[Rfam]
RNA: Eukaryotic small subunit ribosomal RNA, nucleotides 616 to 1147
Organism: Phaeocystis globosa
Nucleotides: 532
Stems, first nucleotide, its partner, number of pairs: 001495001003493001009492001011365001013363002018358003256352004260347002263344002268340004274318002278314006285307001289300003326333002370411006380404001384400004422491003425484003429467003434462008443454003471478002497524003506517004
Number, partner (000 for none) and nucleotide at each position: 001495c002000a003493g004000u005000u006000a007000a008000a009492a010000c011365g012000c013363u014362c015000g016000u017000a018358g019357u020356c021000g022000g023000g024000u025000u026000u027000c028000g029000g030000g031000u032000c033000g034000g035000g036000c037000c038000g039000a040000g041000c042000g043000g044000u045000c046000u047000g048000c049000c050000g051000a052000u053000g054000g055000g056000u057000a058000u059000g060000c061000a062000c063000u064000g065000u066000u067000u068000g069000g070000c071000g072000c073000g074000g075000c076000c077000u078000u079000c080000u081000u082000u083000c084000c085000g086000g087000a088000g089000a090000c091000c092000g093000c094000g095000g096000c097000u098000a099000c100000u101000c102000u103000u104000a105000a106000c107000u108000g109000a110000g111000c112000g113000g114000g115000c116000g117000u118000g119000g120000g121000a122000g123000a124000c125000g126000g127000a128000u129000c130000g131000u132000u133000u134000a135000c136000u137000u138000u139000g140000a141000a142000a143000a144000a145000a146000u147000c148000a149000g150000a151000g152000u153000g154000u155000u156000u157000c158000a159000a160000g161000c162000a163000g164000g165000c166000a167000g168000c169000u170000c171000g172000c173000u174000c175000u176000u177000g178000c179000a180000u181000g182000g183000u184000a185000c186000a187000g188000c189000a190000u191000g192000g193000g194000a195000u196000g197000a198000u199000u200000g201000a202000a203000u204000a205000g206000g207000a208000c209000u210000c211000c212000g213000g214000u215000g216000c217000u218000a219000u220000u221000u222000u223000g224000u225000g226000g227000g228000u229000u230000u231000c232000g233000a234000a235000c236000a237000c238000c239000a240000g241000g242000a243000g244000u245000a246000a247000u248000g249000a250000u251000u252000a253000a254000c255000a256352g257351g258350g259349a260347c261346a262000g263344u264343c265000a266000g267000g268340g269339g270338c271337a272000c273000u274318c275317g276000u277000a278314u279313u280312c281311c282310g283309u284000c285307g286000a287000g288000a289300g290299a291298g292000g293000u294000g295000a296000a297000a298291u299290u300289c301000u302000c303000a304000g305000a306000c307285c308000a309283a310282u311281g312280g313279a314278a315000g316000a317275c318274g319000a320000a321000c322000c323000a324000c325000u326333g327332c328000g329000a330000a331000a332327g333326c334000a335000u336000u337271u338270g339269c340268c341000a342000g343264g344263g345000a346261u347260g348000u349259u350258u351257u352256c353000a354000c355000u356020g357019a358018u359000c360000a361000a362014g363013a364000a365011c366000g367000a368000a369000a370411g371410u372409u373408a374407g375406g376000g377000g378000a379000u380404c381000g382000a383000a384400g385399a386398c387397g388000a389000u390000c391000a392000g393000a394000u395000a396000c397387c398386g399385u400384c401000g402000u403000a404380g405000u406375c407374u408373u409372a410371a411370c412000c413000a414000u415000a416000a417000a418000c419000c420000a421000u422491g423490c424489c425484g426483a427482c428000u429467a430466g431465g432000g433000a434462u435461u436460g437459g438458a439457g440456g441455g442000u443454g444453u445452u446000c447000g448000u449000u450000u451000c452445g453444a454443c455441c456440u457439c458438u459437u460436c461435a462434g463000c464000a465431c466430c467429u468000u469000a470000c471478g472477g473000g474000a475000a476000a477472c478471u479000a480000a481000a482427g483426u484425c485000u486000u487000u488000g489424g490423g491422u492009u493003c494000c495001g496000g497524g498523g499522g500000g501000a502000g503000u504000a505000u506517g507516g508515u509514c510000a511000c512000a513000a514509g515508g516507c517506u518000g519000a520000a521000a522499c523498u524497u525000a526000a527000a528000g529000g530000a531000a532000u